RNA sequence: CAGGUGGUUUAACUCCGAGCCUCCAUACCUAAAUCACAAGACAAGGUAUGUUGGCCGCGAAGUGCAUUCGUAAAAAUGCGUCCUUCGCCAGGGUUGUAAGAGAAAUCAAACAGCCUCCCCGUAAGUGUCAAGGCGAUAAGGCCCGGCAACUUCAAUUUGGAAAGGUGUUAGUGAAUAUGUUGC
Numbered sequence: 001c002a003g004g005u006g007g008u009u010u011a012a013c014u015c016c017g018a019g020c021c022u023c024c025a026u027a028c029c030u031a032a033a034u035c036a037c038a039a040g041a042c043a044a045g046g047u048a049u050g051u052u053g054g055c056c057g058c059g060a061a062g063u064g065c066a067u068u069c070g071u072a073a074a075a076a077u078g079c080g081u082c083c084u085u086c087g088c089c090a091g092g093g094u095u096g097u098a099a100g101a102g103a104a105a106u107c108a109a110a111c112a113g114c115c116u117c118c119c120c121g122u123a124a125g126u127g128u129c130a131a132g133g134c135g136a137u138a139a140g141g142c143c144c145g146g147c148a149a150c151u152u153c154a155a156u157u158u159g160g161a162a163a164g165g166u167g168u169u170a171g172u173g174a175a176u177a178u179g180u181u182g183c
Stems, first nucleotide, its partner, number of pairs: 004176001011169003015165002019055003024050006034041002057088005091116007100107002117160002
RNA: Molybdenum/Tungsten riboswitch aptamer (Moco RNA motif)